[Rfam]
RNA sequence: GUUCCCCUUACAGCAAUUCUUACAUAAUUCUACGUCAAAGAAAAACCCUUGGGAACUG
Numbered sequence: 001g002u003u004c005c006c007c008u009u010a011c012a013g014c015a016a017u018u019c020u021u022a023c024a025u026a027a028u029u030c031u032a033c034g035u036c037a038a039a040g041a042a043a044a045a046c047c048c049u050u051g052g053g054a055a056c057u058g
Stems, first nucleotide, its partner, number of pairs: 001056006